[Rfam]
RNA sequence: CCGGUUCCGGUUCACACCUUCGAUCCGCGAAGGUGACCCGGCGACC
Numbered sequence: 001c002c003g004g005u006u007c008c009g010g011u012u013c014a015c016a017c018c019u020u021c022g023a024u025c026c027g028c029g030a031a032g033g034u035g036a037c038c039c040g041g042c043g044a045c046c
Base pairs, nucleotide, nucleotide: 003046004045005044007041008040009039010038015035016034017033018032019031020030021029022028
RNA: L31-Actinobacteria ribosomal protein leader
Organism: Nocardia sp. 348MFTsu5.1